[Rfam]
RNA sequence: GGGGGUUAACUCAGGCUAGGGAACUCGGCAAAAUAGCCCCGUACCUUCGGUAGAAGGGGUGCCUACUGGGGUCGUAAACCGGCCUCAGUAGGUCGCAGUGACAAGAGGGACCUGACUGUUUAAUAAAAACAUAGGUCCCCGCUAGCCCGAAAGGGUGUGAACGGGGGCUAAAUCCUGGCCACUGGUGGUUGGUGAAAGCCGGGUCCAACCGGCCGAAGCCCCACUGAAGGCCGGGGGUAACUCUGACCCUCUUAAGGUAGCCAAAUGCCUUGCCGGGUAAGUUCCGGCGCGCAUGAAUGGAUCAACGUGGUCCCUACUGUCCCAGCUUGGGGCCCCGUGAACGCCCAGAGUGGGUUCACAGUCCCGCAA
Numbered sequence: 001g002g003g004g005g006u007u008a009a010c011u012c013a014g015g016c017u018a019g020g021g022a023a024c025u026c027g028g029c030a031a032a033a034u035a036g037c038c039c040c041g042u043a044c045c046u047u048c049g050g051u052a053g054a055a056g057g058g059g060u061g062c063c064u065a066c067u068g069g070g071g072u073c074g075u076a077a078a079c080c081g082g083c084c085u086c087a088g089u090a091g092g093u094c095g096c097a098g099u100g101a102c103a104a105g106a107g108g109g110a111c112c113u114g115a116c117u118g119u120u121u122a123a124u125a126a127a128a129a130c131a132u133a134g135g136u137c138c139c140c141g142c143u144a145g146c147c148c149g150a151a152a153g154g155g156u157g158u159g160a161a162c163g164g165g166g167g168c169u170a171a172a173u174c175c176u177g178g179c180c181a182c183u184g185g186u187g188g189u190u191g192g193u194g195a196a197a198g199c200c201g202g203g204u205c206c207a208a209c210c211g212g213c214c215g216a217a218g219c220c221c222c223a224c225u226g227a228a229g230g231c232c233g234g235g236g237g238u239a240a241c242u243c244u245g246a247c248c249c250u251c252u253u254a255a256g257g258u259a260g261c262c263a264a265a266u267g268c269c270u271u272g273c274c275g276g277g278u279a280a281g282u283u284c285c286g287g288c289g290c291g292c293a294u295g296a297a298u299g300g301a302u303c304a305a306c307g308u309g310g311u312c313c314c315u316a317c318u319g320u321c322c323c324a325g326c327u328u329g330g331g332g333c334c335c336c337g338u339g340a341a342c343g344c345c346c347a348g349a350g351u352g353g354g355u356u357c358a359c360a361g362u363c364c365c366g367c368a369a
Base pairs, nucleotide, nucleotide: 001336002335003334004333010331011330012329013328014327015326016325017324019322020321021320036060037059038058039057040056045050061093062092063091064090065089066088067087068086069085070084071083072082073081074080094098106315107314108313109312110311111310112309113307114306117131118130119129134169135168136167137166138165139164140163141162142159145156146155147154148153172302173301174300175299177232178231179230182229183228184225185224186223187222188221191220192219193218198213199212200211201210202209233251234250235249236248237247238246252256272288273287274286275285276284277283350367351366352365353364354363

The record is a 369-nucleotide part of an RNA from Saccharolobus islandicus, which matches "Archaeal large subunit ribosomal RNA" in Rfam. The organism belongs to Saccharolobus islandicus, within Archaea. Gene Ontology terms of the family: ribosome and structural constituent of ribosome.